RNA sequence: GUGCAUCCAGUAGGAAUUGAACCUACGUAUUCGCCAGUUAUGGGUUGGGUGCUUUAACCAUUUAUCCAUAUAUGC
Dot-bracket structure: ..((((...(((((.......))))).............(((.(.((((((.......)))))).))))..))))
Numbered sequence: 001g002u003g004c005a006u007c008c009a010g011u012a013g014g015a016a017u018u019g020a021a022c023c024u025a026c027g028u029a030u031u032c033g034c035c036a037g038u039u040a041u042g043g044g045u046u047g048g049g050u051g052c053u054u055u056a057a058c059c060a061u062u063u064a065u066c067c068a069u070a071u072a073u074g075c
Stems, first nucleotide, its partner, number of pairs: 003075004010026005040069003044066001046064006